[Rfam]
RNA sequence: CUGGAAUGAUGAAAGUUAGCCAAAGCAUAUUUUGGUGUGCUCCUCUAGACAUCAUAUAUAUUGGAUGCGUUGGUAAAAAUUUCCUUUUUGCCAAGCAGAAGAUGAGAUGACUAGAGUUGAAGUUUGCAUCAAUGGUGAUAAAAUUGAGAUUGGUAACUUGCUGACCAGA
Numbered sequence: 001c002u003g004g005a006a007u008g009a010u011g012a013a014a015g016u017u018a019g020c021c022a023a024a025g026c027a028u029a030u031u032u033u034g035g036u037g038u039g040c041u042c043c044u045c046u047a048g049a050c051a052u053c054a055u056a057u058a059u060a061u062u063g064g065a066u067g068c069g070u071u072g073g074u075a076a077a078a079a080u081u082u083c084c085u086u087u088u089u090g091c092c093a094a095g096c097a098g099a100a101g102a103u104g105a106g107a108u109g110a111c112u113a114g115a116g117u118u119g120a121a122g123u124u125u126g127c128a129u130c131a132a133u134g135g136u137g138a139u140a141a142a143a144u145u146g147a148g149a150u151u152g153g154u155a156a157c158u159u160g161c162u163g164a165c166c167a168g169a
Stems, first nucleotide, its partner, number of pairs: 001168004
small nucleolar RNA snoR127: a 169-nucleotide RNA from Leersia perrieri. The organism belongs to Leersia, within Eukaryota. The literature on the family includes a 2009 paper in Nucleic Acids Res by Chen and Wu, "Mining small RNA sequencing data: a new approach to identify small nucleolar RNAs in Arabidopsis". It is annotated as a C/D-box small nucleolar RNA.